The record is a 187-nucleotide sequence from Listeria kieliensis, which matches "Lysine riboswitch aptamer" in Rfam. The family has 47 seed sequences and 3,224 matches in Rfam 15.1. The family's consensus secondary structure is taken from published work.

[Rfam]
RNA sequence: UGGUGAGGUAGAGGUUGCAGCGAUCACAAGUAAGUUUUUCGAGGCGCGCGAAACGCCAGUGACGAAAACCGAACAGGAAAGUUGCCGAAGUGAAAUGGGUUUUUGCGAUUCAUUUUGCUGGGACAGUUAGCGAAAGCGACUGGACUGCUACUAAAACAGUCAUUUUAGUAGGUGCGCUAUCUGACAA
Numbered sequence: 001u002g003g004u005g006a007g008g009u010a011g012a013g014g015u016u017g018c019a020g021c022g023a024u025c026a027c028a029a030g031u032a033a034g035u036u037u038u039u040c041g042a043g044g045c046g047c048g049c050g051a052a053a054c055g056c057c058a059g060u061g062a063c064g065a066a067a068a069c070c071g072a073a074c075a076g077g078a079a080a081g082u083u084g085c086c087g088a089a090g091u092g093a094a095a096u097g098g099g100u101u102u103u104u105g106c107g108a109u110u111c112a113u114u115u116u117g118c119u120g121g122g123a124c125a126g127u128u129a130g131c132g133a134a135a136g137c138g139a140c141u142g143g144a145c146u147g148c149u150a151c152u153a154a155a156a157c158a159g160u161c162a163u164u165u166u167a168g169u170a171g172g173u174g175c176g177c178u179a180u181c182u183g184a185c186a187a
Stems, first nucleotide, its partner, number of pairs: 006182006017085005024078002034069006089119012120146002124142005148171007